[Rfam]
The record is a 106-nucleotide RNA sequence from Companilactobacillus farciminis, which matches "23S methyl RNA motif" in Rfam. Lineage of the source: Bacteria > Bacillota > Bacilli > Lactobacillaceae > Companilactobacillus. Rfam classes the family as a cis-regulatory element.
RNA sequence: GGGUUAUUUGUUUUUCUCAGAAGUGAUUUUGACAAAAGCAAGUAAACAAGAGGCUAUACUAGCGCAUGUCCUUGCUGUGAUGUUCACCGAGGUCAUGCGCUUUUUG
Numbered sequence: 001g002g003g004u005u006a007u008u009u010g011u012u013u014u015u016c017u018c019a020g021a022a023g024u025g026a027u028u029u030u031g032a033c034a035a036a037a038g039c040a041a042g043u044a045a046a047c048a049a050g051a052g053g054c055u056a057u058a059c060u061a062g063c064g065c066a067u068g069u070c071c072u073u074g075c076u077g078u079g080a081u082g083u084u085c086a087c088c089g090a091g092g093u094c095a096u097g098c099g100c101u102u103u104u105u106g
Stems, first nucleotide, its partner, number of pairs: 002047001004045012017032003061101008070092005077087003

Notes: Gene Ontology term of the family: regulation of gene expression.